[Rfam]
RNA sequence: AUUUCCCCAGAUUGAUCCUAAUACGCCUUCCAUUUUUGGUUAUUAGGACUCAAACAUCCCGUGCUCGUUGCAAAUUGCAAGGUGGGUUGUGGUACGUUUCGUGGUGAAACGGUUGGUAAAGCGAGACCUGGGCGACUCAGAAGUGCAUU
Numbered sequence: 001a002u003u004u005c006c007c008c009a010g011a012u013u014g015a016u017c018c019u020a021a022u023a024c025g026c027c028u029u030c031c032a033u034u035u036u037u038g039g040u041u042a043u044u045a046g047g048a049c050u051c052a053a054a055c056a057u058c059c060c061g062u063g064c065u066c067g068u069u070g071c072a073a074a075u076u077g078c079a080a081g082g083u084g085g086g087u088u089g090u091g092g093u094a095c096g097u098u099u100c101g102u103g104g105u106g107a108a109a110c111g112g113u114u115g116g117u118a119a120a121g122c123g124a125g126a127c128c129u130g131g132g133c134g135a136c137u138c139a140g141a142a143g144u145g146c147a148u149u
Base pairs, nucleotide, nucleotide: 006132007131008130009129010128061127062126064125065124066123067122068080069079070078071077072076086149088147089146090145091144093142096110097109098108099107111137112136113135114134115133
The family of this 149-nucleotide RNA is "EGFOA RNA". A search with the family's covariance model found it, with a score of 49 bits. The family's RNA type in Rfam is small RNA.